[Rfam]
RNA sequence: UGAUACAUCAGUAUCACGCCGAAGACAGCAGGUGCCGUAAGGCAUAAGGUUAAUAACGCCUGCCGAGGAUAGAAAUUCUUUAGAUGAAGAAUAUUUAGUCCUGUUCUGUGUGAACAGGACUUUUUUAGCGUGUAC
Numbered sequence: 001u002g003a004u005a006c007a008u009c010a011g012u013a014u015c016a017c018g019c020c021g022a023a024g025a026c027a028g029c030a031g032g033u034g035c036c037g038u039a040a041g042g043c044a045u046a047a048g049g050u051u052a053a054u055a056a057c058g059c060c061u062g063c064c065g066a067g068g069a070u071a072g073a074a075a076u077u078c079u080u081u082a083g084a085u086g087a088a089g090a091a092u093a094u095u096u097a098g099u100c101c102u103g104u105u106c107u108g109u110g111u112g113a114a115c116a117g118g119a120c121u122u123u124u125u126u127a128g129c130g131u132g133u134a135c
Stems, first nucleotide, its partner, number of pairs: 028063006034043003098120009
Rfam assigns this 135-nucleotide sequence from Blautia liquoris to the family "Ribosomal protein L10 leader".
Rfam links the family to the GO term regulation of gene expression.
This family is a putative r-protein leader autoregulatory structure found in B. subtilis and other low-GC Gram-positive bacteria. It is located in the 5' untranslated regions of mRNAs encoding ribosomal proteins L10 and L12 (rplJ-rplL). A Rho-independent transcription terminator structure that is probably involved in regulation is included at the 3' end.
The literature on the family includes a 2008 paper in Biochemistry by Iben and Draper, "Specific interactions of the L10(L12)4 ribosomal protein complex with mRNA, rRNA, and L11".
A search with the family's covariance model found it, with a score of 73 bits.